[Rfam]
RNA sequence: GGCGAUAAACGCGCACGUAAUAAGCGGAUCGGACCCGGGGGCGGUACCCGGCGGCUCCACCAGAAUCCCUCUCCACCCGUUCGUUGGCGGGCGGACGCAAGAGGCAGAAGGGGGCCGAAACAGGAUCGACGGACGUGUAAAGGUGUUGCUUUCGCCCGGCAGGAUGCCACCGUUAUCGGCUCAAAACGCAUAGUUGCCAACGACAACCGUGCUCCGGUGGCCGUCGCUGCGUAA
Numbered sequence: 001g002g003c004g005a006u007a008a009a010c011g012c013g014c015a016c017g018u019a020a021u022a023a024g025c026g027g028a029u030c031g032g033a034c035c036c037g038g039g040g041g042c043g044g045u046a047c048c049c050g051g052c053g054g055c056u057c058c059a060c061c062a063g064a065a066u067c068c069c070u071c072u073c074c075a076c077c078c079g080u081u082c083g084u085u086g087g088c089g090g091g092c093g094g095a096c097g098c099a100a101g102a103g104g105c106a107g108a109a110g111g112g113g114g115c116c117g118a119a120a121c122a123g124g125a126u127c128g129a130c131g132g133a134c135g136u137g138u139a140a141a142g143g144u145g146u147u148g149c150u151u152u153c154g155c156c157c158g159g160c161a162g163g164a165u166g167c168c169a170c171c172g173u174u175a176u177c178g179g180c181u182c183a184a185a186a187c188g189c190a191u192a193g194u195u196g197c198c199a200a201c202g203a204c205a206a207c208c209g210u211g212c213u214c215c216g217g218u219g220g221c222c223g224u225c226g227c228u229g230c231g232u233a234a
Stems, first nucleotide, its partner, number of pairs: 001156005013146004025135002029132003035051005052117007157172003

This 234-nucleotide RNA from Oceanicella actignis belongs to the Rfam family "permuted transfer-messenger RNA". The source organism's lineage runs through Bacteria, Pseudomonadota, Alphaproteobacteria, Paracoccaceae and Oceanicella. A reference for the family is Williams and Bartel (1996), "Phylogenetic analysis of tmRNA secondary structure", RNA.